The family of this 68-nucleotide sequence from Neogobius melanostomus is "mir-130 microRNA precursor family". For this family Rfam cites "Identification of tissue-specific microRNAs from mouse" (Lagos-Quintana et al., Curr Biol, 2002). The organism belongs to Neogobius, within Eukaryota. It scores 46 bits against the family's covariance model.
[Rfam]
RNA sequence: CCUCACACAUUGCUCUUAACAUAUUGUACUGCUAAUCAGUACAAUAUGUUAAGAGCAAUGUGUAAGGG
Numbered sequence: 001c002c003u004c005a006c007a008c009a010u011u012g013c014u015c016u017u018a019a020c021a022u023a024u025u026g027u028a029c030u031g032c033u034a035a036u037c038a039g040u041a042c043a044a045u046a047u048g049u050u051a052a053g054a055g056c057a058a059u060g061u062g063u064a065a066g067g068g
Stems, first nucleotide, its partner, number of pairs: 001068003005063006012056008022046009